RNA: TPP riboswitch aptamer (THI element)
Organism: Echinicola vietnamensis
RNA sequence: ACAAGACUUUAGGGGUGUUCCGAUAAUCUAUCGGGGCUGAGACAUACCCUCUGAACCUGAUCCCGGUAAUGCGGGCGAAGGGAAAAGUGAAGCGUCCUUC
Numbered sequence: 001a002c003a004a005g006a007c008u009u010u011a012g013g014g015g016u017g018u019u020c021c022g023a024u025a026a027u028c029u030a031u032c033g034g035g036g037c038u039g040a041g042a043c044a045u046a047c048c049c050u051c052u053g054a055a056c057c058u059g060a061u062c063c064c065g066g067u068a069a070u071g072c073g074g075g076c077g078a079a080g081g082g083a084a085a086a087g088u089g090a091a092g093c094g095u096c097c098u099u100c
Stems, first nucleotide, its partner, number of pairs: 006088005011050004016044001017037008056081003062075004